Description:
Rfam assigns this 120-nucleotide RNA from Streptomyces lacrimifluminis to the family "Streptomyces-metH RNA". Pairs were carried over by alignment from the consensus structure, which is taken from published work. NCBI's taxonomy places the organism under Bacteria, Actinomycetes, Kitasatosporales, Streptomycetaceae, Streptomyces. A search with the family's covariance model found it, with a score of 111 bits.
RNA sequence: UCCGUCCGUCCCGUGGACGCCCUGACCAUACGGCCCCGUACCGGGCUACCCUGGCCGCGUGCGUCUUCCCGGGGAAGGCGCAAAGCCGACAGCCGUCGCACUCCAGGGAGCCCUUACAUG
Numbered sequence: 001u002c003c004g005u006c007c008g009u010c011c012c013g014u015g016g017a018c019g020c021c022c023u024g025a026c027c028a029u030a031c032g033g034c035c036c037c038g039u040a041c042c043g044g045g046c047u048a049c050c051c052u053g054g055c056c057g058c059g060u061g062c063g064u065c066u067u068c069c070c071g072g073g074g075a076a077g078g079c080g081c082a083a084a085g086c087c088g089a090c091a092g093c094c095g096u097c098g099c100a101c102u103c104c105a106g107g108g109a110g111c112c113c114u115u116a117c118a119u120g
Stems, first nucleotide, its partner, number of pairs: 060082004065077004085099002088097003